A member of the RNA family "Purine riboswitch aptamer" from Aquibacillus halophilus, 103 nucleotides long. A search with the family's covariance model found it, with a score of 80 bits. NCBI's taxonomy places the organism under Bacteria, Bacillati, Bacillota, Bacillaceae, Aquibacillus. The base pairs follow the family's consensus structure, which is taken from published work. Rfam describes the family as follows. Riboswitches are metabolite binding domains within certain messenger RNAs that serve as precision sensors for their corresponding targets.
[Rfam]
RNA sequence: AUAAUUAAAUAAAAAAACCGUCGUAUAAUUUUGGGGAUAUGGCCCAUGAGUUUCUACCAGACCGCCGUUAAUUGGUCUGACUACGCUGGUGUUUUGUGAAUUU
Numbered sequence: 001a002u003a004a005u006u007a008a009a010u011a012a013a014a015a016a017a018c019c020g021u022c023g024u025a026u027a028a029u030u031u032u033g034g035g036g037a038u039a040u041g042g043c044c045c046a047u048g049a050g051u052u053u054c055u056a057c058c059a060g061a062c063c064g065c066c067g068u069u070a071a072u073u074g075g076u077c078u079g080a081c082u083a084c085g086c087u088g089g090u091g092u093u094u095u096g097u098g099a100a101u102u103u
Base pairs, nucleotide, nucleotide: 018089019088020087022085023084024083025082029049030048032046033045034044035043058079059078060077061076062075063074064073